[Rfam]
Shown here is a 139-nucleotide RNA sequence from Micromonospora pattaloongensis, a member of the family "SAM riboswitch aptamer (S box leader)". The SAM riboswitch is found upstream of a number of genes which code for proteins involved in methionine or cysteine biosynthesis in Gram-positive bacteria.
RNA sequence: ACCUCAUCCAGAGGGGCUGAGGGAUACGGCCCGAUGACGCCCCGGCAACCACUUCACGCGACUCGACGGCGAGGCCACGUGAGGCAGGUGCCAAAUCCGUCCCCCGUCGCGCAAUGCGGCGUGUGGGGAAAGAUGAGAG
Numbered sequence: 001a002c003c004u005c006a007u008c009c010a011g012a013g014g015g016g017c018u019g020a021g022g023g024a025u026a027c028g029g030c031c032c033g034a035u036g037a038c039g040c041c042c043c044g045g046c047a048a049c050c051a052c053u054u055c056a057c058g059c060g061a062c063u064c065g066a067c068g069g070c071g072a073g074g075c076c077a078c079g080u081g082a083g084g085c086a087g088g089u090g091c092c093a094a095a096u097c098c099g100u101c102c103c104c105c106g107u108c109g110c111g112c113a114a115u116g117c118g119g120c121g122u123g124u125g126g127g128g129a130a131a132g133a134u135g136a137g138a139g
Base pairs, nucleotide, nucleotide: 003137004136005135006134007133008132013043014042015041016040017039021032022031023030026100027099028098029097044092045091046090047089049088050087052083053082054081096131101128102127103126104125